[Rfam]
RNA: int-alpA RNA
Organism: Azotobacter chroococcum
RNA sequence: GGCCAGCCUAGCCCGAUGGGCGAAAAGCGGAUUUCCCACCCGUCUGGCUGGCCGACCUAUUCGAGA
Number, nucleotide and partner (000 for none) at each position: 001g053002g052003c051004c050005a049006g048007c047008c046009u000010a000011g021012c020013c019014c018015g000016a000017u000018g014019g013020g012021c011022g000023a000024a000025a000026a000027g043028c042029g041030g040031a000032u000033u000034u000035c000036c000037c065038a000039c000040c030041c029042g028043u027044c000045u000046g008047g007048c006049u005050g004051g003052c002053c001054g000055a000056c000057c000058u000059a000060u000061u000062c000063g000064a000065g037066a000